[Rfam]
The record is a 437-nucleotide part of an RNA from Tetrapisispora phaffii, which matches "Eukaryotic large subunit ribosomal RNA" in Rfam. Its family is annotated with structural constituent of ribosome and ribosome in the Gene Ontology. Taxonomically the source falls in Tetrapisispora phaffii (Eukaryota, Saccharomycetes, Saccharomycetaceae, Tetrapisispora). Its Rfam clan is "LSU clan". Pairs were carried over by alignment from the consensus structure, which is taken from published work. On this family, see Cannone et al., BMC Bioinformatics 2002: "The comparative RNA web (CRW) site: an online database of comparative sequence and structure information for ribosomal, intron, and other RNAs".
RNA sequence: GGUAGUAGCAAAUAUUCAAAUGAGAACUUUGAAGACUGAAGUGGGGAAAGGUUCCACGUCAACAGCAGUUGGACGUGGGUUAGUCGAUCCUAAGAGAUGGGGAAGCUCCGUUUCAAAGGCGCUAUUUUUAGCGCCGUCAUCGAAAGGGAAUCCGGUCAAUAUUCCGGAACCUGGAUAUGGAUUCUUCACGGCAACGUAACUGAAUGUGGAGACGUCGGCAUGAGCCCUGGGAGGAGUUAUCUUUUCUUUUUAACAGCUUAUCACCCCGGAAUUGGAUUAUCCGGAGAUGGGGUUUUAUGGCUGGAAGAGGCGAGCGUUUUGCUUCUCGCUCCGGUGCGCUUGUGACGGCCCUUGAAAAUCCGCAGGAAGGAAUAGUUUUCAUGCCAGGUCGUACUGAUAACCGCAGCAGGUCUCCAAGGUGAACAGCCUCUAGUUGA
Numbered sequence: 001g002g003u004a005g006u007a008g009c010a011a012a013u014a015u016u017c018a019a020a021u022g023a024g025a026a027c028u029u030u031g032a033a034g035a036c037u038g039a040a041g042u043g044g045g046g047a048a049a050g051g052u053u054c055c056a057c058g059u060c061a062a063c064a065g066c067a068g069u070u071g072g073a074c075g076u077g078g079g080u081u082a083g084u085c086g087a088u089c090c091u092a093a094g095a096g097a098u099g100g101g102g103a104a105g106c107u108c109c110g111u112u113u114c115a116a117a118g119g120c121g122c123u124a125u126u127u128u129u130a131g132c133g134c135c136g137u138c139a140u141c142g143a144a145a146g147g148g149a150a151u152c153c154g155g156u157c158a159a160u161a162u163u164c165c166g167g168a169a170c171c172u173g174g175a176u177a178u179g180g181a182u183u184c185u186u187c188a189c190g191g192c193a194a195c196g197u198a199a200c201u202g203a204a205u206g207u208g209g210a211g212a213c214g215u216c217g218g219c220a221u222g223a224g225c226c227c228u229g230g231g232a233g234g235a236g237u238u239a240u241c242u243u244u245u246c247u248u249u250u251u252a253a254c255a256g257c258u259u260a261u262c263a264c265c266c267c268g269g270a271a272u273u274g275g276a277u278u279a280u281c282c283g284g285a286g287a288u289g290g291g292g293u294u295u296u297a298u299g300g301c302u303g304g305a306a307g308a309g310g311c312g313a314g315c316g317u318u319u320u321g322c323u324u325c326u327c328g329c330u331c332c333g334g335u336g337c338g339c340u341u342g343u344g345a346c347g348g349c350c351c352u353u354g355a356a357a358a359u360c361c362g363c364a365g366g367a368a369g370g371a372a373u374a375g376u377u378u379u380c381a382u383g384c385c386a387g388g389u390c391g392u393a394c395u396g397a398u399a400a401c402c403g404c405a406g407c408a409g410g411u412c413u414c415c416a417a418g419g420u421g422a423a424c425a426g427c428c429u430c431u432a433g434u435u436g437a
Stems, first nucleotide, its partner, number of pairs: 015033006034435004043415004049395002054078006063071002085391003089147002094141002096112003100109003119134003151168005171387004176383005181377001188197003205364006214349004219344007227334003230250006254303005263293006272284004310329005316323001401410002417429004